[Rfam]
This 121-nucleotide RNA from Oryctes borbonicus belongs to the Rfam family "U4atac minor spliceosomal RNA". The family has 61 seed sequences and 1,648 matches in Rfam 15.1. The family's consensus secondary structure is taken from published work. Clan: U4 clan. For this family Rfam cites "Evolutionary conservation of minor U12-type spliceosome between plants and humans" (Lorkovic et al., RNA, 2005). The match comes from Rfam's covariance-model search (74 bits). NCBI's taxonomy places the organism under Eukaryota, Pancrustacea, Eumetabola, Neuropteroidea, Oryctes. Its family is annotated with mRNA 5'-splice site recognition, spliceosomal tri-snRNP complex assembly and pre-mRNA 5'-splice site binding in the Gene Ontology. Rfam describes the family as follows. U4atac is an essential component of the minor U12-type spliceosome complex which is required for removal of the rarer class of eukaryotic introns (AT-AC, U12-type).

RNA sequence: GUCUUCUUUGUCUAGGGGAGCGAUAUGUGUCAAUGAUCGUUUAGUGAGACCAUACUUGCUGACACCCAUAUUUUUAAUUCGCACCCAAAUAUACUCUUGUUUGAGUGCAAUUUUUGGACGC
Numbered sequence: 001g002u003c004u005u006c007u008u009u010g011u012c013u014a015g016g017g018g019a020g021c022g023a024u025a026u027g028u029g030u031c032a033a034u035g036a037u038c039g040u041u042u043a044g045u046g047a048g049a050c051c052a053u054a055c056u057u058g059c060u061g062a063c064a065c066c067c068a069u070a071u072u073u074u075u076a077a078u079u080c081g082c083a084c085c086c087a088a089a090u091a092u093a094c095u096c097u098u099g100u101u102u103g104a105g106u107g108c109a110a111u112u113u114u115u116g117g118a119c120g121c
Base pairs, nucleotide, nucleotide: 005019006018007017008016009015020059021058022057023056024054025053026052027051029050030049031048038044081108082107083106084105086103088101089100090099091098